Rfam assigns this 256-nucleotide sequence from Cicer arietinum to the family "RNase MRP". Rfam 15.1 lists 3,510 matches to the family in 2,315 species. The source organism's lineage runs through Eukaryota, Streptophyta, Euphyllophyta, eudicotyledons and Cicer.
RNA sequence: AUCGAUCGAGAUGAUGUGAAUGGGCCUUUGCUAUGCAGGGCUCAGGAAAGUCCCCGGACCCAAUCUGCAGAAAUGUAGGCCUGGCAAAACAGGUAAAUCUCUAAGUUGAAGCUGGGUUCACAUCUAGGUGGUGAGGGCUGAGACACGUGUGGGGAGCCUUUGCCAGUUACGCUAGAGAAUAUUGGUCAGUUGUUACAGUCAUUCACAUGGUCAUCAUAAUUUGACUUAACAGAACGGGGCUUACGUCUUUGGUCCA
Numbered sequence: 001a002u003c004g005a006u007c008g009a010g011a012u013g014a015u016g017u018g019a020a021u022g023g024g025c026c027u028u029u030g031c032u033a034u035g036c037a038g039g040g041c042u043c044a045g046g047a048a049a050g051u052c053c054c055c056g057g058a059c060c061c062a063a064u065c066u067g068c069a070g071a072a073a074u075g076u077a078g079g080c081c082u083g084g085c086a087a088a089a090c091a092g093g094u095a096a097a098u099c100u101c102u103a104a105g106u107u108g109a110a111g112c113u114g115g116g117u118u119c120a121c122a123u124c125u126a127g128g129u130g131g132u133g134a135g136g137g138c139u140g141a142g143a144c145a146c147g148u149g150u151g152g153g154g155a156g157c158c159u160u161u162g163c164c165a166g167u168u169a170c171g172c173u174a175g176a177g178a179a180u181a182u183u184g185g186u187c188a189g190u191u192g193u194u195a196c197a198g199u200c201a202u203u204c205a206c207a208u209g210g211u212c213a214u215c216a217u218a219a220u221u222u223g224a225c226u227u228a229a230c231a232g233a234a235c236g237g238g239g240c241u242u243a244c245g246u247c248u249u250u251g252g253u254c255c256a
Base pairs, nucleotide, nucleotide: 002256004254005253006252007251008250009249010248014208015207016206017205018204019203022043023042024041025040026039027038048242049241050240052239053238054237055236066077067076068075069074079094080093081092082091083090116180117179118178123176124175125174126173127172131170132169133168134167135159136158137157138156146151209226210225211224212223213222